[Rfam]
RNA sequence: GGCCGGACACCGCCGAAUCACCGCACGACGUCCGUCAGGUCGUCCGAGGUGAACCGGGGACCCACCGCAUGUUCUGGGGUGAGUUCCCCUGUAGAGCCGGUCCGCCGGUCCAGCAGGGGAUAGGGCCGAUCUUCCCCGCCCGAACCCGUCAGCUAACUCGGUAGGCGGAUCGAGGAAGAAAC
Number, nucleotide and partner (000 for none) at each position: 001g000002g000003c000004c000005g000006g000007a000008c000009a000010c000011c167012g166013c165014c164015g000016a000017a000018u052019c051020a050021c049022c048023g000024c000025a000026c000027g000028a000029c000030g000031u000032c000033c000034g000035u000036c000037a000038g000039g000040u000041c000042g000043u000044c000045c000046g000047a000048g022049g021050u020051g019052a018053a162054c161055c160056g159057g158058g157059g000060a000061c000062c000063c076064a075065c000066c000067g000068c000069a000070u000071g000072u000073u000074c000075u064076g063077g147078g146079g145080u000081g000082a000083g000084u000085u120086c119087c118088c117089c116090u115091g114092u113093a000094g000095a000096g000097c000098c000099g000100g000101u000102c000103c000104g000105c000106c000107g000108g000109u000110c000111c000112a000113g092114c091115a090116g089117g088118g087119g086120a085121u000122a000123g141124g140125g139126c138127c000128g000129a000130u000131c000132u000133u000134c000135c000136c000137c000138g126139c125140c124141c123142g000143a000144a000145c079146c078147c077148g000149u000150c000151a000152g000153c000154u000155a000156a000157c058158u057159c056160g055161g054162u053163a000164g014165g013166c012167g011168g000169a000170u000171c000172g000173a000174g000175g000176a000177a000178g000179a000180a000181a000182c000
c-di-AMP riboswitch aptamer (ydaO/yuaA leader): a 182-nucleotide RNA sequence from Blastococcus sp. TF02-09. NCBI's taxonomy places the organism under Bacteria, Bacillati, Actinomycetes, Geodermatophilaceae, Blastococcus. Its family is annotated with regulation of gene expression and cyclic-di-AMP binding in the Gene Ontology.